[Rfam]
RNA: OxyS RNA
RNA sequence: UAGACGGGGCGGGACCUGUUUGACCCUUGAAGUCUCCGCCGCGUCAUACGAGUUUCUCUCAAACUCGAACAACUAAAGCCAACGUGAACUUUUGCGGACUCCGUGUCCGCU
Numbered sequence: 001u002a003g004a005c006g007g008g009g010c011g012g013g014a015c016c017u018g019u020u021u022g023a024c025c026c027u028u029g030a031a032g033u034c035u036c037c038g039c040c041g042c043g044u045c046a047u048a049c050g051a052g053u054u055u056c057u058c059u060c061a062a063a064c065u066c067g068a069a070c071a072a073c074u075a076a077a078g079c080c081a082a083c084g085u086g087a088a089c090u091u092u093u094g095c096g097g098a099c100u101c102c103g104u105g106u107c108c109g110c111u
Stems, first nucleotide, its partner, number of pairs: 003045004007040001009039004014033002017030001050066004094110006